RNA sequence: UCCAGAACUCAAGAUAUGGGCUAAACUCUAAACAGUGUCUAACUGUAGGAUAGAUUUCAACUUCUCUGUUAUUGCUACAAUUUGAACUUGAAAACGGUUCUUUUGAAUCUUGAACUCUUUAUUAAAGUUUUAAACCCAUGUCUUAACUUUCUAUC
Dot-bracket structure: ...((((.(.((((((((((.((((..((.....(((...((.(..(((((.((....(.((....(....((...........))....)....)))....))..)))))..).).).)))...)).))))..)))))))))))...))))...
Numbered sequence: 001u002c003c004a005g006a007a008c009u010c011a012a013g014a015u016a017u018g019g020g021c022u023a024a025a026c027u028c029u030a031a032a033c034a035g036u037g038u039c040u041a042a043c044u045g046u047a048g049g050a051u052a053g054a055u056u057u058c059a060a061c062u063u064c065u066c067u068g069u070u071a072u073u074g075c076u077a078c079a080a081u082u083u084g085a086a087c088u089u090g091a092a093a094a095c096g097g098u099u100c101u102u103u104u105g106a107a108u109c110u111u112g113a114a115c116u117c118u119u120u121a122u123u124a125a126a127g128u129u130u131u132a133a134a135c136c137c138a139u140g141u142c143u144u145a146a147c148u149u150u151c152u153a154u155c
Stems, first nucleotide, its partner, number of pairs: 004152004009145001011144010022132004028127002035122003041118001042116001044114001047111005053104002059098001061097002067091001072086002